A member of the RNA family "mraW RNA" from Planosporangium flavigriseum, 102 nucleotides long.
The base pairs follow the family's consensus structure, which is taken from published work.
The source organism's lineage runs through Bacteria, Bacillati, Micromonosporales, Micromonosporaceae and Planosporangium.
A search with the family's covariance model found it, with a score of 59 bits.

RNA sequence: UCAAGGCGCACCGCCAGAUCUCCAGCCGCUAGGACUCCUGGCUCUACUUCCCCAGUGCCAGGCGGACGAGCGGAUGGGGAUCUGGCGGUACGUCGACCGGCC
Dot-bracket structure: .........(((((((((.(((((.(((((.(..(.((((((.(..........).)))))).)..).))))).))))).))))))))).............